RNA sequence: GGGGGUGAACUGGCUUCGACUUUGAAGCGAGCCUCUCAGUAGCGAGCUGAGGGUCCUAGGGCCUCAUUAAAAACGUAGGAAAAAAAAGAUAACUGCCAAACCUAAAUUGGCCGUAGCAGCUUAAUUGUUGCUCGUCGACUAUCGGGGCUCCCACCUCGGAUAGUAUCGGCGUCGAAAUGUGGGAUGCUAAGUUAGAUUACCGGCUAGCUUUCAAGAUUUAAGGUAAAAACUAUUGAGAAUUUGUUUCUGGUGACUCUCUCAAUAGUAUUUCACCAGAUGCGCUCGGAGAAGCUGUUGGGUAGCUUAAAAGGACCGGGGUUCGACUCCCCGCACCUCCACCA
Numbered sequence: 001g002g003g004g005g006u007g008a009a010c011u012g013g014c015u016u017c018g019a020c021u022u023u024g025a026a027g028c029g030a031g032c033c034u035c036u037c038a039g040u041a042g043c044g045a046g047c048u049g050a051g052g053g054u055c056c057u058a059g060g061g062c063c064u065c066a067u068u069a070a071a072a073a074c075g076u077a078g079g080a081a082a083a084a085a086a087a088g089a090u091a092a093c094u095g096c097c098a099a100a101c102c103u104a105a106a107u108u109g110g111c112c113g114u115a116g117c118a119g120c121u122u123a124a125u126u127g128u129u130g131c132u133c134g135u136c137g138a139c140u141a142u143c144g145g146g147g148c149u150c151c152c153a154c155c156u157c158g159g160a161u162a163g164u165a166u167c168g169g170c171g172u173c174g175a176a177a178u179g180u181g182g183g184a185u186g187c188u189a190a191g192u193u194a195g196a197u198u199a200c201c202g203g204c205u206a207g208c209u210u211u212c213a214a215g216a217u218u219u220a221a222g223g224u225a226a227a228a229a230c231u232a233u234u235g236a237g238a239a240u241u242u243g244u245u246u247c248u249g250g251u252g253a254c255u256c257u258c259u260c261a262a263u264a265g266u267a268u269u270u271c272a273c274c275a276g277a278u279g280c281g282c283u284c285g286g287a288g289a290a291g292c293u294g295u296u297g298g299g300u301a302g303c304u305u306a307a308a309a310g311g312a313c314c315g316g317g318g319u320u321c322g323a324c325u326c327c328c329c330g331c332a333c334c335u336c337c338a339c340c341a
Stems, first nucleotide, its partner, number of pairs: 001337007020310004025305004032299003037294004043285005048066005054080005113132001116129001119126001133171006139163004144157001147178001149176001151174001180214001182212003186208003197226004229266010243256001246277004251272003314330005
Dot-bracket structure: (((((((............((((.((((...(((..((((..((((((((((.[[[[[...))))).........]]]]]................................(..(..(......)..)..)((((((((((.(..[.[.[.....)..))))..))))))..].].].(.(((.(((........[[[[.....))).))).)........]]]]..((((((((((....(..[[[[.[[[..)))))))))))...]]].]]]]...))))).....))))..)))..)))).))))...(((((.......))))))))))))....
RNA: transfer-messenger RNA